Rfam assigns this 127-nucleotide sequence from Homo sapiens to the family "Small nucleolar RNA ACA64". The organism belongs to Homo, within Eukaryota. A reference for the family is Schattner et al. (2006), "A computational screen for mammalian pseudouridylation guide H/ACA RNAs", RNA. The match comes from Rfam's covariance-model search (101 bits).

RNA sequence: AUUACUUGAAAAUCACUCCCAGGCUUUGGCCAUGGCAGCAGGUGAGAUUCAAGGCCCAGAGCCUCCAGGGCCUCAGCUCACCGCACACUGCCCCGUGUGUGGUGGGGAAACCCAGACCCCAACAGGU
Numbered sequence: 001a002u003u004a005c006u007u008g009a010a011a012a013u014c015a016c017u018c019c020c021a022g023g024c025u026u027u028g029g030c031c032a033u034g035g036c037a038g039c040a041g042g043u044g045a046g047a048u049u050c051a052a053g054g055c056c057c058a059g060a061g062c063c064u065c066c067a068g069g070g071c072c073u074c075a076g077c078u079c080a081c082c083g084c085a086c087a088c089u090g091c092c093c094c095g096u097g098u099g100u101g102g103u104g105g106g107g108a109a110a111c112c113c114a115g116a117c118c119c120c121a122a123c124a125g126g127u
Stems, first nucleotide, its partner, number of pairs: 005053006013045004023036003068120001069118002072115002078108002081105002086099003